[Rfam]
Source information
A member of the RNA family "Group II catalytic intron D1-D4-7" from Dysgonomonas hofstadii, 149 nucleotides long. NCBI's taxonomy places the organism under Bacteria, Bacteroidota, Bacteroidia, Bacteroidales, Dysgonomonas. From the family's description: Group II introns are found in rRNA, tRNA and mRNA of organelles in fungi, plants and protists, and also in mRNA in bacteria. The match comes from Rfam's covariance-model search (106 bits). The base pairs follow the family's consensus structure.
RNA sequence: CCUGCUGUUCCGUCAGCAGUAGCCUACAACCAGAUGCACCAAAUAGUGAUAUAAUGUAUCAAGCUGGUUGGACAAUGUACUCCUCCCGAAAGGGGCAGACAGAAGCGUGAGUGGAAAUCAAUGGCUGUUAGUAUCAUACAGUCGGGAGG
Numbered sequence: 001c002c003u004g005c006u007g008u009u010c011c012g013u014c015a016g017c018a019g020u021a022g023c024c025u026a027c028a029a030c031c032a033g034a035u036g037c038a039c040c041a042a043a044u045a046g047u048g049a050u051a052u053a054a055u056g057u058a059u060c061a062a063g064c065u066g067g068u069u070g071g072a073c074a075a076u077g078u079a080c081u082c083c084u085c086c087c088g089a090a091a092g093g094g095g096c097a098g099a100c101a102g103a104a105g106c107g108u109g110a111g112u113g114g115a116a117a118u119c120a121a122u123g124g125c126u127g128u129u130a131g132u133a134u135c136a137u138a139c140a141g142u143c144g145g146g147a148g149g
Stems, first nucleotide, its partner, number of pairs: 002019006028069005033060006042052001044051002084095004098119002105112002124142005